[Rfam]
RNA: Small nucleolar RNA SNORA3/SNORA45 family
Organism: Myotis myotis
RNA sequence: CCCGAGACUGCAGUCACAUCCUGACACAGCUCUUGUCCUGUGCGCUAGAGUCUUCAGAGAGAACCCGCUGGUCUUGAUUCACCAGCGAGGGUGAUCAGUAGUGCCCAGAUCAGGAACAUGU
Numbered sequence: 001c002c003c004g005a006g007a008c009u010g011c012a013g014u015c016a017c018a019u020c021c022u023g024a025c026a027c028a029g030c031u032c033u034u035g036u037c038c039u040g041u042g043c044g045c046u047a048g049a050g051u052c053u054u055c056a057g058a059g060a061g062a063a064c065c066c067g068c069u070g071g072u073c074u075u076g077a078u079u080c081a082c083c084a085g086c087g088a089g090g091g092u093g094a095u096c097a098g099u100a101g102u103g104c105c106c107a108g109a110u111c112a113g114g115a116a117c118a119u120g121u
Stems, first nucleotide, its partner, number of pairs: 002057001004055003007051003012046002015044001017042002020040001023037004068113007076105001080103003084099001